[Rfam]
Vault RNA: a 95-nucleotide RNA from Erpetoichthys calabaricus. The family's RNA type in Rfam is non-coding RNA gene.

RNA sequence: GCGCCGGCUUAGCUCAGUGGUUACUUCACUCAACUGCGCAUGAGUUGGGGUUCUCGAAUCUCGGUCUCCAACCACGGGCGCUGCCCGGCGUUUUA
Numbered sequence: 001g002c003g004c005c006g007g008c009u010u011a012g013c014u015c016a017g018u019g020g021u022u023a024c025u026u027c028a029c030u031c032a033a034c035u036g037c038g039c040a041u042g043a044g045u046u047g048g049g050g051u052u053c054u055c056g057a058a059u060c061u062c063g064g065u066c067u068c069c070a071a072c073c074a075c076g077g078g079c080g081c082u083g084c085c086c087g088g089c090g091u092u093u094u095a
Stems, first nucleotide, its partner, number of pairs: 002090006012079004017075004025058003
The source organism's lineage runs through Eukaryota, Eumetazoa, Euteleostomi, Polypteridae and Erpetoichthys. About the family: This family of RNAs are found as part of the enigmatic vault ribonucleoprotein complex. The complex consists of a major vault protein (MVP), two minor vault proteins (VPARP and TEP1), and several small untranslated RNA molecules. It has been suggested that the vault complex is involved in drug resistance.